[Rfam]
RNA sequence: GCGAGACAGGUGGGCCGGCGGCCGAGUGCGACCGAUAAACUGUUUCUCGGACGGACCGGGCGCAGCCUCCGUGCCGUCCGCCCAUGAUCAGCCAGCAGCCGCUGCAACCCCAGGGAG
Numbered sequence: 001g002c003g004a005g006a007c008a009g010g011u012g013g014g015c016c017g018g019c020g021g022c023c024g025a026g027u028g029c030g031a032c033c034g035a036u037a038a039a040c041u042g043u044u045u046c047u048c049g050g051a052c053g054g055a056c057c058g059g060g061c062g063c064a065g066c067c068u069c070c071g072u073g074c075c076g077u078c079c080g081c082c083c084a085u086g087a088u089c090a091g092c093c094a095g096c097a098g099c100c101g102c103u104g105c106a107a108c109c110c111c112a113g114g115g116a117g
Base pairs, nucleotide, nucleotide: 049079050078051077052076053075054074057071058070059069060068093104094103095102096101
Streptomyces-metK RNA: a 117-nucleotide RNA from Streptomyces sp. SAT1.
A search with the family's covariance model found it, with a score of 122 bits.
By type it is a small RNA.